The record is a 47-nucleotide sequence from Garicola koreensis, which matches "Guanidine-II riboswitch aptamer (mini-ykkC)" in Rfam.

RNA sequence: CGGCUGGGACGACCUGGGCCGUGAUUCUCUGAACGGGGACGACCCCG
Number, nucleotide and partner (000 for none) at each position: 001c000002g019003g000004c017005u016006g015007g014008g013009a000010c000011g000012a000013c008014c007015u006016g005017g004018g000019c002020c000021g000022u000023g000024a000025u000026u000027c000028u000029c000030u000031g000032a000033a000034c047035g046036g045037g044038g043039a000040c000041g000042a000043c038044c037045c036046c035047g034

Its family is annotated with regulation of gene expression in the Gene Ontology. It scores 32 bits against the family's covariance model.